[Rfam]
RNA sequence: GCAGGAAUGGCGGAACUGGUAUACGCGGCUGUCUUAGAAACAGUCUUUUGAGAGUUCGAAUCUCUCUUCCUGUA
Numbered sequence: 001g002c003a004g005g006a007a008u009g010g011c012g013g014a015a016c017u018g019g020u021a022u023a024c025g026c027g028g029c030u031g032u033c034u035u036a037g038a039a040a041c042a043g044u045c046u047u048u049u050g051a052g053a054g055u056u057c058g059a060a061u062c063u064c065u066c067u068u069c070c071u072g073u074a
Base pairs, nucleotide, nucleotide: 001073002072003071004070005069006068007067010026011025012024028044029043030042031041032040050066051065052064053063054062
RNA: tRNA
Organism: Kordia antarctica